This 91-nucleotide RNA from Carex littledalei belongs to the Rfam family "Small nucleolar RNA R44/J54/Z268 family".
Rfam 15.1 lists 1,168 matches to the family in 228 species.
A search with the family's covariance model found it, with a score of 68 bits.
Lineage of the source: Eukaryota > Tracheophyta > Mesangiospermae > Cariceae > Carex subgen. Euthyceras.
RNA sequence: GAUUCAUGUGAUGAGAAAAAGACAGGGACAUCAGAAAUCCUCUCUACUGAGAGGGAUGAUGAAUCAUGUCUAGGGGAAUCUCUGAUGAAAA
Number, nucleotide and partner (000 for none) at each position: 001g000002a000003u089004u088005c087006a086007u000008g000009u000010g000011a000012u000013g000014a000015g000016a000017a000018a000019a000020a000021g000022a000023c000024a000025g000026g000027g000028a000029c000030a000031u000032c000033a000034g000035a000036a000037a000038u000039c000040c000041u000042c000043u000044c000045u000046a000047c000048u000049g000050a000051g000052a000053g000054g000055g000056a000057u000058g000059a000060u000061g000062a000063a000064u000065c000066a000067u000068g000069u000070c000071u000072a000073g000074g000075g000076g000077a000078a000079u000080c000081u000082c000083u000084g000085a000086u006087g005088a004089a003090a000091a000